[Rfam]
RNA sequence: CUGGAGGACUAAGAAAGUAGAGCCAGUGUAGAUGGUUGGUUCUGCUGAUACUAUCCUCCUACAUUAAAUGACAGAAGAACAGGGCCUUGCCUUCAAGAUACAGCAGGCCUUACUUCUUUCUACCAACAUUC
Numbered sequence: 001c002u003g004g005a006g007g008a009c010u011a012a013g014a015a016a017g018u019a020g021a022g023c024c025a026g027u028g029u030a031g032a033u034g035g036u037u038g039g040u041u042c043u044g045c046u047g048a049u050a051c052u053a054u055c056c057u058c059c060u061a062c063a064u065u066a067a068a069u070g071a072c073a074g075a076a077g078a079a080c081a082g083g084g085c086c087u088u089g090c091c092u093u094c095a096a097g098a099u100a101c102a103g104c105a106g107g108c109c110u111u112a113c114u115u116c117u118u119u120c121u122a123c124c125a126a127c128a129u130u131c
Base pairs, nucleotide, nucleotide: 003059004058005057006056007055008054010050011049018044019043020042021041022040023039024038025036027034028033070124073121074120075119076118077117082111083110084109086107087106088105089104

Overview
Small Cajal body specific RNA 15: a 131-nucleotide sequence from Salvator merianae. The source organism's lineage runs through Eukaryota, Craniata, Amniota, Laterata and Salvator. The base pairs follow the family's consensus structure, which was predicted with RNAfold. A reference for the family is Darzacq et al. (2002), "Cajal body-specific small nuclear RNAs: a novel class of 2'-O-methylation and pseudouridylation guide RNAs", EMBO J. Rfam describes the family as follows. scaRNAs are a specific class of small nuclear RNAs which localise to the Cajal bodies and guide the modification of RNA polymerase II transcribed spliceosomal RNAs U1, U2, U4, U5 and U12. ACA45 belongs to the H/ACA box class of guide RNAs as it has the predicted hairpin-hinge-hairpin-tail structure, the conserved H/ACA-box motifs and is found associated with GAR1. ACA45 is predicted to guide the pseudouridylation of residue U37 of the U2 spliceosomal snRNA. By type it is a small Cajal body RNA. Its Rfam clan is "SCARNA4 clan".